Annotation
Shown here is a 96-nucleotide sequence, a member of the family "SAM-I/IV (S-adenosyl methionine) riboswitch aptamer". On this family, see Trausch et al., PNAS 2014: "Structural basis for diversity in the SAM clan of riboswitches". The base pairs follow the family's consensus structure, which is taken from published work. Rfam's curators put it in the seed alignment.
[Rfam]
RNA sequence: UUUUUGUAUCUUGAGCAGGAUUUAAUUCCUCUCCAACCUGCCUACUCCGGCAAGGUGGAAAAACGAUACGGUUAAUCAACAAUUUAAGGAGAAAAA
Numbered sequence: 001u002u003u004u005u006g007u008a009u010c011u012u013g014a015g016c017a018g019g020a021u022u023u024a025a026u027u028c029c030u031c032u033c034c035a036a037c038c039u040g041c042c043u044a045c046u047c048c049g050g051c052a053a054g055g056u057g058g059a060a061a062a063a064c065g066a067u068a069c070g071g072u073u074a075a076u077c078a079a080c081a082a083u084u085u086a087a088g089g090a091g092a093a094a095a096a
Base pairs, nucleotide, nucleotide: 006069007068008067009066010065015031017030018029019028020027032059033058034057037055038054039053040051041050042049045091046090047089048088071080072079073078